[Rfam]
RNA sequence: CAAGGCUUGUCCGGAGAGAGUUGGAAUUGGGGUACUCCCAAAUCCGACCGCCGAAGGCGCAACCCGCUCGGAAACGCUCAGGCAAAAGAACGGCAAGUUUGA
Numbered sequence: 001c002a003a004g005g006c007u008u009g010u011c012c013g014g015a016g017a018g019a020g021u022u023g024g025a026a027u028u029g030g031g032g033u034a035c036u037c038c039c040a041a042a043u044c045c046g047a048c049c050g051c052c053g054a055a056g057g058c059g060c061a062a063c064c065c066g067c068u069c070g071g072a073a074a075c076g077c078u079c080a081g082g083c084a085a086a087a088g089a090a091c092g093g094c095a096a097g098u099u100u101g102a
Stems, first nucleotide, its partner, number of pairs: 005098005011093003020048006050083003053079002057077003063071002

Rfam assigns this 102-nucleotide sequence from a Steroidobacteraceae bacterium to the family "Glycine riboswitch aptamer".